[Rfam]
Nucleotides: 302
Stems, first nucleotide, its partner, number of pairs: 001040003004023006028037003044301010056289002059285005065279001068277002071274006078263002081260004086255001090252001099248007107237002110235005116228004121223004126165003130161005136155008172219006184209003191202003
Number, partner (000 for none) and nucleotide at each position: 001040g002039c003038c004023g005022a006021g007020c008019u009018g010000a011000g012000u013000a014000g015000c016000g017000c018009c019008a020007g021006c022005u023004u024000g025000u026000g027000a028037c029036c030035c031000a032000u033000g034000u035030g036029g037028g038003g039002g040001c041000a042000c043000c044301a045300a046299g047298g048297u049296g050295a051294u052293g053292g054000a055000a056289c057288a058000u059285g060284g061283u062282u063281a064000a065279g066000g067000c068277u069276u070000a071274a072273u073272a074271g075270g076269u077000u078263g079262g080000u081260c082259u083258g084257g085000u086255g087000g088000u089000u090252g091000c092000a093000c094000c095000a096000u097000g098000u099248u100247g101246g102245c103244c104243u105242g106000c107237c108236c109000g110235c111234u112233c113232c114231a115000a116228g117227u118226u119225g120000c121223g122222a123221g124220u125000u126165g127164a128163c129000c130161c131160a132159u133158g134157g135000g136155a137154c138153u139152u140151g141150u142149g143148c144000g145000a146000a147000g148143g149142c150141a151140c152139g153138g154137g155136u156000a157134u158133u159132g160131u161130g162000u163128g164127u165126c166000u167000u168000a169000g170000a171000c172219a173218g174217g175216a176215g177214g178000g179000u180000a181000c182000a183000g184209c185208g186207u187000g188000a189000g190000g191202c192201u193200g194000g195000u196000u197000u198000c199000a200193c201192a202191g203000a204000g205000c206000a207186a208185c209184g210000a211000a212000c213000a214177c215176u216175u217174c218173c219172u220124a221123c222122u223121c224000c225119u226118g227117a228116c229000a230000g231114u232113g233112g234111a235110g236108g237107g238000a239000u240000c241000a242105c243104g244103g245102g246101c247100c248099a249000c250000u251000g252090c253000u254000u255086c256000c257084u258083c259082a260081g261000u262079c263078c264000a265000c266000a267000a268000c269076a270075u271074c272073u273072g274071u275000c276069g277068a278000g279065c280000c281063u282062a283061g284060c285059c286000u287000c288057u289056g290000g291000a292053c293052c294051a295050u296049u297048a298047c299046u300045u301044u302000u

A member of the RNA family "Plant signal recognition particle RNA" from Lathyrus oleraceus, 302 nucleotides long. The organism belongs to Lathyrus, within Eukaryota. On this family, see Wild et al., Curr Opin Struct Biol 2002: "Towards the structure of the mammalian signal recognition particle".